[Rfam]
This 49-nucleotide sequence from Enterococcus rivorum belongs to the Rfam family "uup RNA". Rfam classes the family as a cis-regulatory element. The organism belongs to Enterococcus, within Bacteria. Pairs were carried over by alignment from the consensus structure, which is taken from published work.
RNA sequence: CUAGAAUCAGCUCCCAACAAAUGAAUGUGAUGAAGCAUUGUUGUGGAGC
Numbered sequence: 001c002u003a004g005a006a007u008c009a010g011c012u013c014c015c016a017a018c019a020a021a022u023g024a025a026u027g028u029g030a031u032g033a034a035g036c037a038u039u040g041u042u043g044u045g046g047a048g049c
Base pairs, nucleotide, nucleotide: 011048012047013046014045017041018040019039